[Rfam]
RNA sequence: UAGCGCGUCAUCUGGGGAGUAGCCAGCCGUUCCGCUGACGGGACGGGCCAUAUGUCAACAUAUUUGGCCGAGAGGCCAUGGCAUAUGGGAUGCGGUAUCAGCCGCAUC
Numbered sequence: 001u002a003g004c005g006c007g008u009c010a011u012c013u014g015g016g017g018a019g020u021a022g023c024c025a026g027c028c029g030u031u032c033c034g035c036u037g038a039c040g041g042g043a044c045g046g047g048c049c050a051u052a053u054g055u056c057a058a059c060a061u062a063u064u065u066g067g068c069c070g071a072g073a074g075g076c077c078a079u080g081g082c083a084u085a086u087g088g089g090a091u092g093c094g095g096u097a098u099c100a101g102c103c104g105c106a107u108c
Base pairs, nucleotide, nucleotide: 027046028045029044048088049087050086051085052084053083054082055081056080057079065078066077067076068075069074089108090107091106092105093104094103095102
This 108-nucleotide sequence from Sphingobium yanoikuyae belongs to the Rfam family "Manganese Mn2+ riboswitch aptamer (yybP-ykoY)". From the family's description: This RNA was originally discovered in E. coli during a large scale screen and was named SraF. The family was later found to exist upstream of related families of protein genes in many bacteria, including the the yybP and ykoK genes in B. subtilis. The specific functions of these proteins are unknown, but this structured RNA element may be involved in their genetic regulation as a riboswitch. For this family Rfam cites "New RNA motifs suggest an expanded scope for riboswitches in bacterial genetic control" (Barrick et al., Proc Natl Acad Sci U S A, 2004). The family has 29 seed sequences and 1,126 matches in Rfam 15.1.